[Rfam]
RNA sequence: GUACUCUUUAAAUCAGUCCAGUGAGACAGAUAAGAGGCGAUUGGAACGAAGCAGGCCUGUGUAAAUCAAGCCUGCCUGCUCCUGCGUACCUCUUUGUCUGAUGAUAAAGAGGUUUUUUGUAU
Numbered sequence: 001g002u003a004c005u006c007u008u009u010a011a012a013u014c015a016g017u018c019c020a021g022u023g024a025g026a027c028a029g030a031u032a033a034g035a036g037g038c039g040a041u042u043g044g045a046a047c048g049a050a051g052c053a054g055g056c057c058u059g060u061g062u063a064a065a066u067c068a069a070g071c072c073u074g075c076c077u078g079c080u081c082c083u084g085c086g087u088a089c090c091u092c093u094u095u096g097u098c099u100g101a102u103g104a105u106a107a108a109g110a111g112g113u114u115u116u117u118u119g120u121a122u
Base pairs, nucleotide, nucleotide: 004036005035006034007033008032013030014029016027017026018025050080051079052078053077054076055075056074059071060070062068084117086115088113089112090111091110092109093108094107095106096105097104
Rfam assigns this 122-nucleotide RNA from Sinobaca qinghaiensis to the family "PyrR binding site". Rfam classes the family as a cis-regulatory element. The organism belongs to Sinobaca, within Bacteria. It scores 54 bits against the family's covariance model.